[Rfam]
This 100-nucleotide RNA from Bacillus subtilis belongs to the Rfam family "Purine riboswitch aptamer".
Nucleotides: 100
Base pairs, nucleotide, nucleotide: 016084019081020080021079022078026046029043030042031041032040055075056074057073058072059071060070061069
Number, partner (000 for none) and nucleotide at each position: 001000g002000a003000a004000a005000u006000c007000a008000a009000a010000a011000c012000a013000c014000g015000a016084c017000c018000u019081c020080a021079u022078a023000u024000a025000a026046u027000c028000u029043u030042g031041g032040g033000a034000a035000u036000a037000u038000g039000g040032c041031c042030c043029a044000u045000a046026a047000g048000u049000u050000u051000c052000u053000a054000c055075c056074c057073g058072g059071c060070a061069a062000c063000c064000g065000u066000a067000a068000a069061u070060u071059g072058c073057c074056g075055g076000a077000c078022u079021a080020u081019g082000c083000a084016g085000g086000g087000a088000a089000g090000u091000g092000a093000u094000c095000g096000a097000u098000a099000a100000a

Taxonomically the source falls in Bacillus (Bacteria, Bacillota, Bacilli, Caryophanales). The family's consensus secondary structure is taken from published work.